[Rfam]
RNA sequence: GGCGUAAAGGGUACGUAGGUUGUUCUUUGCUACAUUAGUCAGCAGAGAACUUGAAUCCAAUAGGAGUUACCAGAAUUUCGAGAGUAGCGCUGAUAUGCUUUGAUACUUGAAGGACUACCAAUGGCGAAAGCAGGUAACUAGUUAGAGAUUGACACUGAGGUACGAAAGCGUAGGGAGCAAACAGAAUUAGAUACUCUGGUAGUCUACGCUGUAAACUAUGAGUGCUAGUAUUUUGUCAUACGAUAAGAUUCUUAGCAAACGCAAUAAGCACUCCGCCUGGGAAGUACAGUCACACGACAGAACACCAAAUGAUU
Numbered sequence: 001g002g003c004g005u006a007a008a009g010g011g012u013a014c015g016u017a018g019g020u021u022g023u024u025c026u027u028u029g030c031u032a033c034a035u036u037a038g039u040c041a042g043c044a045g046a047g048a049a050c051u052u053g054a055a056u057c058c059a060a061u062a063g064g065a066g067u068u069a070c071c072a073g074a075a076u077u078u079c080g081a082g083a084g085u086a087g088c089g090c091u092g093a094u095a096u097g098c099u100u101u102g103a104u105a106c107u108u109g110a111a112g113g114a115c116u117a118c119c120a121a122u123g124g125c126g127a128a129a130g131c132a133g134g135u136a137a138c139u140a141g142u143u144a145g146a147g148a149u150u151g152a153c154a155c156u157g158a159g160g161u162a163c164g165a166a167a168g169c170g171u172a173g174g175g176a177g178c179a180a181a182c183a184g185a186a187u188u189a190g191a192u193a194c195u196c197u198g199g200u201a202g203u204c205u206a207c208g209c210u211g212u213a214a215a216c217u218a219u220g221a222g223u224g225c226u227a228g229u230a231u232u233u234u235g236u237c238a239u240a241c242g243a244u245a246a247g248a249u250u251c252u253u254a255g256c257a258a259a260c261g262c263a264a265u266a267a268g269c270a271c272u273c274c275g276c277c278u279g280g281g282a283a284g285u286a287c288a289g290u291c292a293c294a295c296g297a298c299a300g301a302a303c304a305c306c307a308a309a310u311g312a313u314u
Stems, first nucleotide, its partner, number of pairs: 001277003009274001011163004016157001018156003022050010054150003058145001060143001065139007072116002076112007087098003124131002168209006177203002182198004220273006228251001230249008255262002279306002289298003
RNA: Bacterial small subunit ribosomal RNA, nucleotides 492 to 805